[Rfam]
RNA sequence: AGCUUGCCAAUGAUGUCACAAAAUGUCUGAACAAAUGAGAUCACAGUGAUAUUAAGAUUUUUACUGAGGCAAGCU
Numbered sequence: 001a002g003c004u005u006g007c008c009a010a011u012g013a014u015g016u017c018a019c020a021a022a023a024u025g026u027c028u029g030a031a032c033a034a035a036u037g038a039g040a041u042c043a044c045a046g047u048g049a050u051a052u053u054a055a056g057a058u059u060u061u062u063a064c065u066g067a068g069g070c071a072a073g074c075u
Stems, first nucleotide, its partner, number of pairs: 002074007